Overview:
A member of the RNA family "Bacterial RNase P class A" from Agrilutibacter solisilvae, 359 nucleotides long. Rfam classes the family as a ribozyme. The match comes from Rfam's covariance-model search (315 bits). The organism belongs to Agrilutibacter, within Bacteria.
[Rfam]
RNA sequence: GGAGUCGGCUGGACAGUCGCGUCGCGUUCCCGUUCGCGGGAAGGCGCCGAGGAAAGUCCGGGCUCCAUAGGGCACGGUGCCAGGUAACGCCUGGGCGGCGCGAGCCGACGGAAAGUGCAACAGAAAGAUACCGCCGAUGGCUCCUCGGAGAUCAGGCAAGGGUGAAAUGGUGCGGUAAGAGCGCACCGCGAGUCCGGCAACGGACCGGCAUGGCAAACCCCACCGGGAGCAAGACCAAAUAGGGAGGCAAUGCCGCGGCCCGCGGUGUCUCCGGGUAGGUUGCUUGAGCGUCGCGGUGACGCGGCGCCUAGAGGAAUGGCUGUCCACGACAGAACCCGGCUUACAGGCCGACUCCGCCA
Dot-bracket structure: ((((((((((((((((((.((.(((.(((((......))))).))).))....[[[.[[[[[((((...[[[[.((((((((((.....)))))(((((....)))).)((...((((............(((((..((.(((....)))..)))))..)).......((((((.......))))))(((.(((((....))))))).)...))..)))))))))))))...((((......((((((...(((((.]]]]))))))))))).....))))......((((((((....))))))))..........)))))))..........]]]]]]]].).))))))))))....
Numbered sequence: 001g002g003a004g005u006c007g008g009c010u011g012g013a014c015a016g017u018c019g020c021g022u023c024g025c026g027u028u029c030c031c032g033u034u035c036g037c038g039g040g041a042a043g044g045c046g047c048c049g050a051g052g053a054a055a056g057u058c059c060g061g062g063c064u065c066c067a068u069a070g071g072g073c074a075c076g077g078u079g080c081c082a083g084g085u086a087a088c089g090c091c092u093g094g095g096c097g098g099c100g101c102g103a104g105c106c107g108a109c110g111g112a113a114a115g116u117g118c119a120a121c122a123g124a125a126a127g128a129u130a131c132c133g134c135c136g137a138u139g140g141c142u143c144c145u146c147g148g149a150g151a152u153c154a155g156g157c158a159a160g161g162g163u164g165a166a167a168u169g170g171u172g173c174g175g176u177a178a179g180a181g182c183g184c185a186c187c188g189c190g191a192g193u194c195c196g197g198c199a200a201c202g203g204a205c206c207g208g209c210a211u212g213g214c215a216a217a218c219c220c221c222a223c224c225g226g227g228a229g230c231a232a233g234a235c236c237a238a239a240u241a242g243g244g245a246g247g248c249a250a251u252g253c254c255g256c257g258g259c260c261c262g263c264g265g266u267g268u269c270u271c272c273g274g275g276u277a278g279g280u281u282g283c284u285u286g287a288g289c290g291u292c293g294c295g296g297u298g299a300c301g302c303g304g305c306g307c308c309u310a311g312a313g314g315a316a317u318g319g320c321u322g323u324c325c326a327c328g329a330c331a332g333a334a335c336c337c338g339g340c341u342u343a344c345a346g347g348c349c350g351a352c353u354c355c356g357c358c359a
Stems, first nucleotide, its partner, number of pairs: 001355010011344001012324007020049002023046003027042005054342003058339005063229004070261004075225005080094005095109001096107004110220002115218002117214002131161002133157003138154002141150003169187006188209001189207002192205005233281004243272006252266005288307008